Shown here is a 187-nucleotide RNA from Thorsellia anophelis, a member of the family "Lysine riboswitch aptamer". The literature on the family includes a 2003 paper in Nucleic Acids Res by Rodionov et al., "Regulation of lysine biosynthesis and transport genes in bacteria: yet another RNA riboswitch?". Lineage of the source: Bacteria > Pseudomonadota > Enterobacterales > Thorselliaceae > Thorsellia anophelis. The family's consensus secondary structure is taken from published work. The match comes from Rfam's covariance-model search (77 bits).
RNA sequence: GCACCCAGAAGAGGCGCACUGUCUAGGUAACCUAUAAUAGGACCGCAUCCGUUGAAAAUAGGCUAGGGAGAACAGUGCCGAGAUUUGUAUGAACGCGGAUUUAUACAAGUCGACCGCAAAGGCUGAAUCCUUUGGGUUGUCACACGAGCCAAUCAGUUUGGCCGCAAGGUGGAGCACUUCUGGGCCA
Dot-bracket structure: .....((((((....(((((((.(......(((((......................))))).......).)))))))...((((((((((((......))))))))))))((((.((((((......)))))))))).((((.........................))))....)))))).....